[Rfam]
RNA sequence: AGACCUUUUUUUUUUUGUAAUGGGCCUUUCUCCGAAGACCCUUUUCAACAAUUUUUGGCAGGCUUAACCUUGUGUUAGGCCUU
Numbered sequence: 001a002g003a004c005c006u007u008u009u010u011u012u013u014u015u016u017g018u019a020a021u022g023g024g025c026c027u028u029u030c031u032c033c034g035a036a037g038a039c040c041c042u043u044u045u046c047a048a049c050a051a052u053u054u055u056u057g058g059c060a061g062g063c064u065u066a067a068c069c070u071u072g073u074g075u076u077a078g079g080c081c082u083u
Stems, first nucleotide, its partner, number of pairs: 022041003026037003060082009
Shown here is an 83-nucleotide RNA sequence from Globodera rostochiensis, a member of the family "SmY spliceosomal RNA". Taxonomically the source falls in Globodera (Eukaryota, Metazoa, Protostomia, Tylenchoidea). For this family Rfam cites "A novel family of C. elegans snRNPs contains proteins associated with trans-splicing" (MacMorris et al., RNA, 2007). Rfam 15.1 lists 408 matches to the family in 67 species. The base pairs follow the family's consensus structure, which is taken from published work.